[Rfam]
RNA sequence: GUGUCACCGAAAAUGGCACUGAAAGAAUUCACGGGGUAUUUUACACACUUCCCGUAGUUCUUCUGUGCCGUGUUCGGUGUCCA
Numbered sequence: 001g002u003g004u005c006a007c008c009g010a011a012a013a014u015g016g017c018a019c020u021g022a023a024a025g026a027a028u029u030c031a032c033g034g035g036g037u038a039u040u041u042u043a044c045a046c047a048c049u050u051c052c053c054g055u056a057g058u059u060c061u062u063c064u065g066u067g068c069c070g071u072g073u074u075c076g077g078u079g080u081c082c083a
Stems, first nucleotide, its partner, number of pairs: 003081001005079006013071006021063002025059002029057001031055004

About this RNA: This 83-nucleotide sequence from Sipha flava belongs to the Rfam family "mir-263 microRNA precursor family". NCBI's taxonomy places the organism under Eukaryota, Opisthokonta, Protostomia, Arthropoda, Sipha. Rfam links the family to the GO terms miRNA-mediated post-transcriptional gene silencing and RISC complex. Clan: mir-182 clan. Pairs were carried over by alignment from the consensus structure, which was predicted with RNAalifold.